[Rfam]
RNA: Histone 3' UTR stem-loop
RNA sequence: CAACCGGCUCUUUUCAGAGCCACCACAUUUUCAAAAAAGAGAUUG
Numbered sequence: 001c002a003a004c005c006g007g008c009u010c011u012u013u014u015c016a017g018a019g020c021c022a023c024c025a026c027a028u029u030u031u032c033a034a035a036a037a038a039g040a041g042a043u044u045g
Stems, first nucleotide, its partner, number of pairs: 006021006